Notes:
Group II catalytic intron D1-D4-3: a 169-nucleotide sequence from Desulfopila aestuarii.
RNA sequence: UUGCUGGUAACGGCAGGGUCUGAAGGAAGCGAUAGGAAGUAAGCGGUACAUAGUGUAAACGAACCUGAUUCAGCGGUGCGGGAGGGUAAGCGUCCAAACUAGCGUGAAGCCCGAUACCUGGUCAGUCCCGUAACGUGUUUGAGGAUGCGAUCGCUCACAGGGGGUUCGC
Numbered sequence: 001u002u003g004c005u006g007g008u009a010a011c012g013g014c015a016g017g018g019u020c021u022g023a024a025g026g027a028a029g030c031g032a033u034a035g036g037a038a039g040u041a042a043g044c045g046g047u048a049c050a051u052a053g054u055g056u057a058a059a060c061g062a063a064c065c066u067g068a069u070u071c072a073g074c075g076g077u078g079c080g081g082g083a084g085g086g087u088a089a090g091c092g093u094c095c096a097a098a099c100u101a102g103c104g105u106g107a108a109g110c111c112c113g114a115u116a117c118c119u120g121g122u123c124a125g126u127c128c129c130g131u132a133a134c135g136u137g138u139u140u141g142a143g144g145a146u147g148c149g150a151u152c153g154c155u156c157a158c159a160g161g162g163g164g165u166u167c168g169c
Base pairs, nucleotide, nucleotide: 001016002015003014004013005012006011029169030168031167032166042155043154044153045152046151047149049147050146051145064144065143066142068140073136074135075134077132078131079130080129081128082127083126084112085111086110087109090105091104092103093102

Overview: A reference for the family is Bonen and Vogel (2001), "The ins and outs of group II introns", Trends Genet.